[Rfam]
The family of this 178-nucleotide RNA sequence from Planococcus lenghuensis is "Lysine riboswitch aptamer".

RNA sequence: CACAAUGGAUGAGGCGCAAUGAUCAUGAGUACCUAAGCCCCGAAAGCUGCAACUUGGGCUAAGCGAAAGGGAGAAUUGCCGAAACGGAAGUCUGCUUGCAGGCGGCUUGCCGUUGGAUUGCAUAUUAAGAGUAUGCAAUUUGUCAUUAUUCUCGGAAUAAUGGAGUGCUUCCACUUGG
Numbered sequence: 001c002a003c004a005a006u007g008g009a010u011g012a013g014g015c016g017c018a019a020u021g022a023u024c025a026u027g028a029g030u031a032c033c034u035a036a037g038c039c040c041c042g043a044a045a046g047c048u049g050c051a052a053c054u055u056g057g058g059c060u061a062a063g064c065g066a067a068a069g070g071g072a073g074a075a076u077u078g079c080c081g082a083a084a085c086g087g088a089a090g091u092c093u094g095c096u097u098g099c100a101g102g103c104g105g106c107u108u109g110c111c112g113u114u115g116g117a118u119u120g121c122a123u124a125u126u127a128a129g130a131g132u133a134u135g136c137a138a139u140u141u142g143u144c145a146u147u148a149u150u151c152u153c154g155g156a157a158u159a160a161u162g163g164a165g166u167g168c169u170u171c172c173a174c175u176u177g178g
Stems, first nucleotide, its partner, number of pairs: 006173004011168001016079005023072002033063002036060004083114005089108002092105003115141011143163007

Notes: About the family: Riboswitches are metabolite binding domains within certain messenger RNAs that serve as precision sensors for their corresponding targets. Allosteric rearrangement of mRNA structure is mediated by ligand binding, and this results in modulation of gene expression.